[Rfam]
Nucleotides: 077
Base pairs, nucleotide, nucleotide: 001021002020004018005017006016007015008014009013036071037070038069039068040067042065043064044063045062046061047060049058050057
Number, partner (000 for none) and nucleotide at each position: 001021g002020g003000g004018c005017g006016u007015g008014u009013u010000c011000u012000u013009a014008g015007c016006a017005c018004g019000g020002u021001c022000g023000c024000a025000g026000c027000a028000a029000a030000g031000u032000c033000g034000u035000g036071u037070u038069a039068a040067u041000a042065g043064c044063g045062a046061u047060g048000c049058c050057u051000u052000u053000g054000g055000c056000c057050a058049g059000a060047c061046a062045u063044c064043g065042u066000g067040g068039u069038u070037a071036g072000u073000g074000a075000a076000u077000c